Rfam assigns this 358-nucleotide RNA sequence from Methylopila turkensis to the family "Alphaproteobacteria transfer-messenger RNA". The base pairs follow the family's consensus structure, which is taken from published work. Bacterial tmRNA, also known as 10Sa RNA or SsrA, is named for its dual tRNA and mRNA-like properties. Its role is to liberate the mRNA from a stalled ribosome. To accomplish this part of the tmRNA is used as a reading frame that ends in a translation stop signal. The broken mRNA is replaced in the ribosome by the tmRNA and translation of the tmRNA leads to addition of a proteolysis tag to the incomplete protein enabling recognition by a protease. Recently a number of permuted tmRNA genes have been found encoded in two parts. tmRNAs have been identified in eubacteria and some chloroplasts but are absent from archaeal and eukaryote nuclear genomes.

[Rfam]
RNA sequence: GGGCUUUCGGUCCGCCGCCCACGCGCCUAUAUUCAUCGGCGUCGGGCUUGCCCGACUAUGGUGAUAAACGGUCGCCGCAAUAAACCCUUCGGACCCGGGGGCAGCACCCGGCGCCUCCACCCAAGCCCAUGGUUCGCCGUGGGUUUCGGCGGGGGCGAAACAGGAUCGACGGGGGCGUAAAGGGCGAGCUUUCCCCCGGCAUGGCACCGCCGUUAUCGGGCUCAAUCUAUAGUUGCCAACGACAACUAUGCUCAGGUUCGUCUGGCCGCGUGAGCGGUCCGAUUGACCAAAUUCAAGUCCUAAGGGGUUAGCUCUUUUAGGCGGGGUUCGGAGGUACCUGGCAACAGAAACCUCCACU
Numbered sequence: 001g002g003g004c005u006u007u008c009g010g011u012c013c014g015c016c017g018c019c020c021a022c023g024c025g026c027c028u029a030u031a032u033u034c035a036u037c038g039g040c041g042u043c044g045g046g047c048u049u050g051c052c053c054g055a056c057u058a059u060g061g062u063g064a065u066a067a068a069c070g071g072u073c074g075c076c077g078c079a080a081u082a083a084a085c086c087c088u089u090c091g092g093a094c095c096c097g098g099g100g101g102c103a104g105c106a107c108c109c110g111g112c113g114c115c116u117c118c119a120c121c122c123a124a125g126c127c128c129a130u131g132g133u134u135c136g137c138c139g140u141g142g143g144u145u146u147c148g149g150c151g152g153g154g155g156c157g158a159a160a161c162a163g164g165a166u167c168g169a170c171g172g173g174g175g176c177g178u179a180a181a182g183g184g185c186g187a188g189c190u191u192u193c194c195c196c197c198g199g200c201a202u203g204g205c206a207c208c209g210c211c212g213u214u215a216u217c218g219g220g221c222u223c224a225a226u227c228u229a230u231a232g233u234u235g236c237c238a239a240c241g242a243c244a245a246c247u248a249u250g251c252u253c254a255g256g257u258u259c260g261u262c263u264g265g266c267c268g269c270g271u272g273a274g275c276g277g278u279c280c281g282a283u284u285g286a287c288c289a290a291a292u293u294c295a296a297g298u299c300c301u302a303a304g305g306g307g308u309u310a311g312c313u314c315u316u317u318u319a320g321g322c323g324g325g326g327u328u329c330g331g332a333g334g335u336a337c338c339u340g341g342c343a344a345c346a347g348a349a350a351c352c353u354c355c356a357c358u
Base pairs, nucleotide, nucleotide: 041056042055043054044053045052060196061195063193064192070189072187073186074185075184076183085175086174087173089172090171091170095111096110097109098108099107112157113156114155115154116153117152118151197212198211199210200209203222204221207219208218324339325338326337327336330355331354332353333352334351335350